[Rfam]
RNA sequence: UCUGGCGAUGAUGACACACUUGCCCUCACUGAGAACGCUGUUCAAUAAUGAGAACCUCACCGUGUACUCUGAGCCAGA
Numbered sequence: 001u002c003u004g005g006c007g008a009u010g011a012u013g014a015c016a017c018a019c020u021u022g023c024c025c026u027c028a029c030u031g032a033g034a035a036c037g038c039u040g041u042u043c044a045a046u047a048a049u050g051a052g053a054a055c056c057u058c059a060c061c062g063u064g065u066a067c068u069c070u071g072a073g074c075c076a077g078a
Base pairs, nucleotide, nucleotide: 001078002077003076004075005074006073